[Rfam]
Nucleotides: 083
Base pairs, nucleotide, nucleotide: 001081002080003079004078009070010069011068012067013066021065022064023063029058030057031056035055036054
Number, partner (000 for none) and nucleotide at each position: 001081c002080c003079u004078u005000u006000g007000g008000a009070g010069a011068a012067c013066u014000a015000u016000a017000u018000a019000a020000a021065c022064a023063a024000g025000a026000g027000u028000a029058a030057u031056a032000a033000u034000g035055a036054u037000g038000a039000a040000u041000u042000a043000u044000a045000u046000a047000a048000u049000g050000a051000u052000g053000a054036a055035u056031u057030a058029u059000g060000a061000a062000a063023u064022u065021g066013g067012g068011u069010u070009c071000g072000u073000u074000a075000a076000a077000u078004a079003a080002g081001g082000a083000a